[Rfam]
RNA sequence: AAAAAGAAAACCCUGCAGAGAUUUCUGCAGGGUCCUUCCAUCUCCUUUAUAAGGAAAGAAGGCAAAGGGAGAGGAGAAACCGGAGGAAGAACUUAUGGGGAAACGUAAGUCUUCUCCGCGG
Numbered sequence: 001a002a003a004a005a006g007a008a009a010a011c012c013c014u015g016c017a018g019a020g021a022u023u024u025c026u027g028c029a030g031g032g033u034c035c036u037u038c039c040a041u042c043u044c045c046u047u048u049a050u051a052a053g054g055a056a057a058g059a060a061g062g063c064a065a066a067g068g069g070a071g072a073g074g075a076g077a078a079a080c081c082g083g084a085g086g087a088a089g090a091a092c093u094u095a096u097g098g099g100g101a102a103a104c105g106u107a108a109g110u111c112u113u114c115u116c117c118g119c120g121g
Stems, first nucleotide, its partner, number of pairs: 011032009033069005043055005081118004086114004091110005